[Rfam]
RNA sequence: AGCUGCAAAAGUCGUGGUGGCAUCACAAGUUGUCUUGCCAUCCGACAUUUGUGGUUGA
Numbered sequence: 001a002g003c004u005g006c007a008a009a010a011g012u013c014g015u016g017g018u019g020g021c022a023u024c025a026c027a028a029g030u031u032g033u034c035u036u037g038c039c040a041u042c043c044g045a046c047a048u049u050u051g052u053g054g055u056u057g058a
Base pairs, nucleotide, nucleotide: 001056002055003054004053005052006051007050008049009048012045013044014043016042017041018040019039020038021037022036025033026032

Rfam assigns this 58-nucleotide RNA sequence from Caenorhabditis briggsae to the family "mir-7583 microRNA precursor family". Rfam's curators put it in the seed alignment. Gene Ontology terms of the family: RISC complex and miRNA-mediated post-transcriptional gene silencing.